[Rfam]
RNA sequence: UCCGACACGGACGGCGGUGAUUUUGAGCGUAUAAGUUUUGCGUAUGCAAAACUUAUUAUCAAAAACUGUACAAGGAUGUACGGUUUUUGAUGUGG
Numbered sequence: 001u002c003c004g005a006c007a008c009g010g011a012c013g014g015c016g017g018u019g020a021u022u023u024u025g026a027g028c029g030u031a032u033a034a035g036u037u038u039u040g041c042g043u044a045u046g047c048a049a050a051a052c053u054u055a056u057u058a059u060c061a062a063a064a065a066c067u068g069u070a071c072a073a074g075g076a077u078g079u080a081c082g083g084u085u086u087u088u089g090a091u092g093u094g095g
Stems, first nucleotide, its partner, number of pairs: 002017003006013001032055010058091014

A member of the RNA family "TD-2 RNA" from Treponema pedis, 95 nucleotides long. By type it is a small RNA. Clan: TD (Treponema denticola) motifs. NCBI's taxonomy places the organism under Bacteria, Pseudomonadati, Treponemataceae, Treponema, Treponema pedis. Pairs were carried over by alignment from the consensus structure, which is taken from published work. It scores 62 bits against the family's covariance model. On this family, see Weinberg et al., Nucleic Acids Res 2007: "Identification of 22 candidate structured RNAs in bacteria using the CMfinder comparative genomics pipeline".